[Rfam]
Rfam assigns this 72-nucleotide RNA sequence from Erinaceus europaeus to the family "Small nucleolar RNA SNORD113/SNORD114 family".
The organism belongs to Erinaceus, within Eukaryota.
The family's RNA type in Rfam is C/D-box small nucleolar RNA.
Its family is annotated with RNA processing and nucleolus in the Gene Ontology.
A reference for the family is Cavaille et al. (2002), "Identification of tandemly-repeated C/D snoRNA genes at the imprinted human 14q32 domain reminiscent of those at the Prader-Willi/Angelman syndrome region", Hum Mol Genet.
The imprinted human domain at 14q32 contains two clusters of tandemly repeated small nucleolar RNAs named 14q(I) and 14q(II) snoRNAs. These two clusters are named SNORD113 and SNORD114 respectively in the HGNC approved gene symbol nomenclature. The snoRNAs found in both clusters are clearly related and are represented here by a single family. These snoRNAs are intron encoded and are processed from the tissue-specific non-coding human MEG8 RNA, which lies downstream of the imprinted genes DLK1 and GTL2. snoRNAs 14q(I) and 14q(II) differ from previously identified C/D box snoRNAs in their expression profiles and lack of complementarity to rRNA and snRNA. Homologues of these snoRNAs are found in the imprinted non-coding mouse transcript Rian, and in the rat non-coding Bsr (brain-specific repetitive) RNA.
RNA sequence: UGGAUCUGUGAUGACAUUGCAUGCCGGAUAAGUCACCCAUGAUCAAUAACUGUCUGAAAUUCUGAGAUUCAA
Numbered sequence: 001u002g003g004a005u006c007u008g009u010g011a012u013g014a015c016a017u018u019g020c021a022u023g024c025c026g027g028a029u030a031a032g033u034c035a036c037c038c039a040u041g042a043u044c045a046a047u048a049a050c051u052g053u054c055u056g057a058a059a060u061u062c063u064g065a066g067a068u069u070c071a072a
Stems, first nucleotide, its partner, number of pairs: 002070005